[Rfam]
RNA: Salmonella enterica Typhi npcRNA 44
Organism: Enterobacter cancerogenus
RNA sequence: CUUUAAAAAUCUGGAUCAAGCUGAAAAUUGAAACGACACAUCUAUAAGGUGUGUUCGAGUCUCUCAAAUUUUCGCAAGUCGAUGAUGAAUCGAAAGAAACAUCUUCGG
Numbered sequence: 001c002u003u004u005a006a007a008a009a010u011c012u013g014g015a016u017c018a019a020g021c022u023g024a025a026a027a028u029u030g031a032a033a034c035g036a037c038a039c040a041u042c043u044a045u046a047a048g049g050u051g052u053g054u055u056c057g058a059g060u061c062u063c064u065c066a067a068a069u070u071u072u073c074g075c076a077a078g079u080c081g082a083u084g085a086u087g088a089a090u091c092g093a094a095a096g097a098a099a100c101a102u103c104u105u106c107g108g
Stems, first nucleotide, its partner, number of pairs: 020075002023073007034057003038054004043049001080107003084103004